Shown here is a 76-nucleotide sequence from Bombus vosnesenskii, a member of the family "mir-3478 microRNA precursor family". Its family is annotated with RISC complex and miRNA-mediated post-transcriptional gene silencing in the Gene Ontology. It scores 76 bits against the family's covariance model. The family's consensus secondary structure was predicted with RNAalifold.

RNA sequence: AGGCGGACACUGGAUGAAUCCUACCCGGUGAGGCUUCCUUCUCAACCACACCGGACGAGAUUUCAUCCGAUAGCAG
Dot-bracket structure: ..((.(....((((((((((.(..(((((..((............))..)))))..).)))).)))))).).))..